Streptomyces RNA 4115: a 108-nucleotide RNA from Streptomyces rubrolavendulae. From the family's description: Identified by deep sequencing of transcriptome at the end of exponential growth phase. Sequencing size consistent with notrthern blot size. Streptomyces specific. The source organism's lineage runs through Bacteria, Actinomycetota, Kitasatosporales, Streptomycetaceae and Streptomyces. Pairs were carried over by alignment from the consensus structure.

RNA sequence: GCGUGGGUCGGCCCGCCGGCGGGAACCAGCGGGCUGGGGGACACCGUCGCCUCAUUCCCCGCGGGCGGCGGACCGGUCCGGAGGGCGAGGAGCGCCCUCCGGACCGCG
Numbered sequence: 001g002c003g004u005g006g007g008u009c010g011g012c013c014c015g016c017c018g019g020c021g022g023g024a025a026c027c028a029g030c031g032g033g034c035u036g037g038g039g040g041a042c043a044c045c046g047u048c049g050c051c052u053c054a055u056u057c058c059c060c061g062c063g064g065g066c067g068g069c070g071g072a073c074c075g076g077u078c079c080g081g082a083g084g085g086c087g088a089g090g091a092g093c094g095c096c097c098u099c100c101g102g103a104c105c106g107c108g
Base pairs, nucleotide, nucleotide: 001107002106006074007073008072009036010035011034012033013032014031015030016029018027037042044071045070046069047068048067049066050065051064052063075105076104077103078102079101080100081099082098083097084096085095086094087093